[Rfam]
RNA sequence: UAGAUGUGAUGAAGUGAGAGGUUGCUGACACACCCGGCCGCUUUGCCAUGGCGAGUGUUCAGGAGAUUUUCACGGAGAAUGUCUAUUUUGAAAAUAGGCGAGAA
Numbered sequence: 001u002a003g004a005u006g007u008g009a010u011g012a013a014g015u016g017a018g019a020g021g022u023u024g025c026u027g028a029c030a031c032a033c034c035c036g037g038c039c040g041c042u043u044u045g046c047c048a049u050g051g052c053g054a055g056u057g058u059u060c061a062g063g064a065g066a067u068u069u070u071c072a073c074g075g076a077g078a079a080u081g082u083c084u085a086u087u088u089u090g091a092a093a094a095u096a097g098g099c100g101a102g103a104a
Base pairs, nucleotide, nucleotide: 014073015072016071018070019069020068021067025062026061027060028059080103082101083100087098088097089096
A member of the RNA family "S10-Clostridia ribosomal protein leader" from Listeria booriae, 104 nucleotides long. The match comes from Rfam's covariance-model search (36 bits).